EcpR1: a 104-nucleotide RNA sequence from Enterovirga aerilata.

RNA sequence: UAGCCCUCCGACGCUCAGGUCCGCCGCAUCUCCUGGGUUUCGAGGGCUAGGCCGGUUCGGGAGCGGCACCAGCCUCCUCAUCGCCGCUCCCGGCCGGCCACCUU
Numbered sequence: 001u002a003g004c005c006c007u008c009c010g011a012c013g014c015u016c017a018g019g020u021c022c023g024c025c026g027c028a029u030c031u032c033c034u035g036g037g038u039u040u041c042g043a044g045g046g047c048u049a050g051g052c053c054g055g056u057u058c059g060g061g062a063g064c065g066g067c068a069c070c071a072g073c074c075u076c077c078u079c080a081u082c083g084c085c086g087c088u089c090c091c092g093g094c095c096g097g098c099c100a101c102c103u104u
Stems, first nucleotide, its partner, number of pairs: 002048007010041001014037006050099008059090002
A reference for the family is Reinkensmeier et al. (2011), "Conservation and Occurrence of Trans-Encoded sRNAs in the Rhizobiales", Genes (Basel). Perviously named SmelC291, SmrC10, or Sra33.